The family of this 131-nucleotide RNA from Pantoea agglomerans is "Salmonella enterica Typhi npcRNA 44". The family has 34 seed sequences and 474 matches in Rfam 15.1. A search with the family's covariance model found it, with a score of 69 bits. The literature on the family includes a 2010 paper in Nucleic Acids Res by Chinni et al., "Experimental identification and characterization of 97 novel npcRNA candidates in Salmonella enterica serovar Typhi". Taxonomically the source falls in Pantoea (Bacteria, Pseudomonadati, Enterobacterales, Erwiniaceae).
[Rfam]
RNA sequence: CUUUAACAAUCCGGAACAAGCUGAAAAUUGAAACGACGCAGCGCGUCAUUCCUCCGUAAUAAGGAAUGAUUUGGCGAUGCGUUCGAGUCUCUCAAAUGCUUGCAAUUCGCAGCGUUGUAAAACGCCUGUGG
Numbered sequence: 001c002u003u004u005a006a007c008a009a010u011c012c013g014g015a016a017c018a019a020g021c022u023g024a025a026a027a028u029u030g031a032a033a034c035g036a037c038g039c040a041g042c043g044c045g046u047c048a049u050u051c052c053u054c055c056g057u058a059a060u061a062a063g064g065a066a067u068g069a070u071u072u073g074g075c076g077a078u079g080c081g082u083u084c085g086a087g088u089c090u091c092u093c094a095a096a097u098g099c100u101u102g103c104a105a106u107u108c109g110c111a112g113c114g115u116u117g118u119a120a121a122a123c124g125c126c127u128g129u130g131g
Stems, first nucleotide, its partner, number of pairs: 020103002023101002027097003034085003038082002044076005108130003112126001113124002